The record is a 118-nucleotide RNA sequence from Prauserella muralis, which matches "TPP riboswitch aptamer (THI element)" in Rfam. A reference for the family is Kubodera et al. (2003), "Thiamine-regulated gene expression of Aspergillus oryzae thiA requires splicing of the intron containing a riboswitch-like domain in the 5'-UTR", FEBS Lett.
[Rfam]
RNA sequence: CACGUUUGCCACGGGAGUCCGGCGCCGUCCGGGCUGAGAGGUGGGCAUGAGCGCGAGCCCACGACCGUUCGCACCUGAUCCGGAUCAUGCCGGCGCAGGGAGGCCCGAGUUUCCCUCC
Numbered sequence: 001c002a003c004g005u006u007u008g009c010c011a012c013g014g015g016a017g018u019c020c021g022g023c024g025c026c027g028u029c030c031g032g033g034c035u036g037a038g039a040g041g042u043g044g045g046c047a048u049g050a051g052c053g054c055g056a057g058c059c060c061a062c063g064a065c066c067g068u069u070c071g072c073a074c075c076u077g078a079u080c081c082g083g084a085u086c087a088u089g090c091c092g093g094c095g096c097a098g099g100g101a102g103g104c105c106c107g108a109g110u111u112u113c114c115c116u117c118c
Stems, first nucleotide, its partner, number of pairs: 008104003011068004017034005041062005074099004080093004